[Rfam]
RNA sequence: GAUGGCAGUGACGACUCGGUAAUAUUCAAGCUCAACAGACCGAAUCACAGGUCUCUCUCUACUCGAGGUUGAUCUGUAUGCCGAUUUUCCCGCUGAACCGAGCCAUC
Numbered sequence: 001g002a003u004g005g006c007a008g009u010g011a012c013g014a015c016u017c018g019g020u021a022a023u024a025u026u027c028a029a030g031c032u033c034a035a036c037a038g039a040c041c042g043a044a045u046c047a048c049a050g051g052u053c054u055c056u057c058u059c060u061a062c063u064c065g066a067g068g069u070u071g072a073u074c075u076g077u078a079u080g081c082c083g084a085u086u087u088u089c090c091c092g093c094u095g096a097a098c099c100g101a102g103c104c105a106u107c
Base pairs, nucleotide, nucleotide: 001107002106003105004104005103006102

Rfam assigns this 107-nucleotide RNA from Sorghum bicolor to the family "Small nucleolar RNA Z107/R87". Rfam 15.1 lists 783 matches to the family in 221 species. The family's RNA type in Rfam is C/D-box small nucleolar RNA. The base pairs follow the family's consensus structure, which was predicted with RNAfold.